Description:
The record is a 77-nucleotide RNA sequence from Alligator mississippiensis, which matches "Mammalian CPEB3 ribozyme" in Rfam. On this family, see Salehi-Ashtiani et al., Science 2006: "A genomewide search for ribozymes reveals an HDV-like sequence in the human CPEB3 gene".
RNA sequence: GGUUGCAAGCUCGAGGCCAUAGCAGAAGCGCUCAUGGCGUGGCCCUAUCAUAUUCCAAUGAAUCUGCAAAUUCUGCU
Numbered sequence: 001g002g003u004u005g006c007a008a009g010c011u012c013g014a015g016g017c018c019a020u021a022g023c024a025g026a027a028g029c030g031c032u033c034a035u036g037g038c039g040u041g042g043c044c045c046u047a048u049c050a051u052a053u054u055c056c057a058a059u060g061a062a063u064c065u066g067c068a069a070a071u072u073c074u075g076c077u
Stems, first nucleotide, its partner, number of pairs: 013045001015044004021077007028040003049066002052063004